[Rfam]
RNA: Small nucleolar RNA snoR104
Organism: Cephalotus follicularis
RNA sequence: AAGCUUUGCAUCCAAAACCUGAGAUGUUUCCUUACACAAUCUCCCUACAGGAAAAUCUGAUAGUUUCCUGCAUGUAGUACUUGAGCAAGUUCUGCAAGUCUAAUUAUCCAGAAAUGUU
Numbered sequence: 001a002a003g004c005u006u007u008g009c010a011u012c013c014a015a016a017a018c019c020u021g022a023g024a025u026g027u028u029u030c031c032u033u034a035c036a037c038a039a040u041c042u043c044c045c046u047a048c049a050g051g052a053a054a055a056u057c058u059g060a061u062a063g064u065u066u067c068c069u070g071c072a073u074g075u076a077g078u079a080c081u082u083g084a085g086c087a088a089g090u091u092c093u094g095c096a097a098g099u100c101u102a103a104u105u106a107u108c109c110a111g112a113a114a115u116g117u118u
Stems, first nucleotide, its partner, number of pairs: 001032001003030001008027005057111003070099002073096005079090003